[Rfam]
RNA sequence: GAGGAAAUGAGGACAAUAACGCAAUGUCUUGAAUAUAUUAUGAAGACUUCUAAUCCAACUCUGAUCCUCAAUGACGUG
Number, nucleotide and partner (000 for none) at each position: 001g069002a068003g067004g066005a000006a000007a000008u000009g000010a000011g000012g000013a000014c000015a000016a000017u000018a000019a000020c000021g000022c000023a000024a000025u000026g000027u000028c000029u000030u000031g000032a000033a000034u000035a000036u000037a000038u000039u000040a000041u000042g000043a000044a000045g000046a000047c000048u000049u000050c000051u000052a000053a000054u000055c000056c000057a000058a000059c000060u000061c000062u000063g000064a000065u000066c004067c003068u002069c001070a000071a000072u000073g000074a000075c000076g000077u000078g000
RNA: Small nucleolar RNA SNORD19